[Rfam]
RNA sequence: GAGGAAAGUCCAGCCACCGCACCGGGGCCGCGGUGCCGCAAGGCACCUCCCGAGAGGGAGGGCAACGGCGCAGAAACGACACGUCCCGGCGGAUAUGGGGAUGAAAGCGGUGAAGGGCCCCGGCGACGGUGCCCGAGAUAACCCGCAGACGACCCGUCGGGGACCGGUGAAACGGCCGUCCCGCGGGGUGCAAGGCCGAGGAAGGGGCGAUGAGUUCCCGGUGGGAGUCCCGUGUUAGGCCGCUCAGUCGAAUGUCCCCUUGAUACAGAAGGGGGCUUA
Numbered sequence: 001g002a003g004g005a006a007a008g009u010c011c012a013g014c015c016a017c018c019g020c021a022c023c024g025g026g027g028c029c030g031c032g033g034u035g036c037c038g039c040a041a042g043g044c045a046c047c048u049c050c051c052g053a054g055a056g057g058g059a060g061g062g063c064a065a066c067g068g069c070g071c072a073g074a075a076a077c078g079a080c081a082c083g084u085c086c087c088g089g090c091g092g093a094u095a096u097g098g099g100g101a102u103g104a105a106a107g108c109g110g111u112g113a114a115g116g117g118c119c120c121c122g123g124c125g126a127c128g129g130u131g132c133c134c135g136a137g138a139u140a141a142c143c144c145g146c147a148g149a150c151g152a153c154c155c156g157u158c159g160g161g162g163a164c165c166g167g168u169g170a171a172a173c174g175g176c177c178g179u180c181c182c183g184c185g186g187g188g189u190g191c192a193a194g195g196c197c198g199a200g201g202a203a204g205g206g207g208c209g210a211u212g213a214g215u216u217c218c219c220g221g222u223g224g225g226a227g228u229c230c231c232g233u234g235u236u237a238g239g240c241c242g243c244u245c246a247g248u249c250g251a252a253u254g255u256c257c258c259c260u261u262g263a264u265a266c267a268g269a270a271g272g273g274g275g276c277u278u279a
Base pairs, nucleotide, nucleotide: 006278007277008276010275011274014271015190016189017188018187020223021222022221023220024219025218028186029185030184031183032182033046034045035044036043037042047060048059049058050057051056061181062180066178067177068176069175082166083165085161086160087159088158089157090156091155092154108135109134194241195240196239197238204231205230206229207228208227
Shown here is a 279-nucleotide RNA sequence from Thermococcus celer, a member of the family "Archaeal RNase P". Rfam links the family to the GO terms multimeric ribonuclease P complex, ribonuclease P activity and tRNA processing. Ribonuclease P (RNase P) is a ubiquitous endoribonuclease, found in archaea, bacteria and eukarya as well as chloroplasts and mitochondria. Its best characterised activity is the generation of mature 5'-ends of tRNAs by cleaving the 5'-leader elements of precursor-tRNAs. Cellular RNase Ps are ribonucleoproteins. RNA from bacterial RNase Ps retains its catalytic activity in the absence of the protein subunit, i.e. it is a ribozyme. Clan: RNaseP clan. For this family Rfam cites "Ribonuclease P: unity and diversity in a tRNA processing ribozyme" (Frank and Pace, Annu Rev Biochem, 1998). The organism belongs to Thermococcus, within Archaea.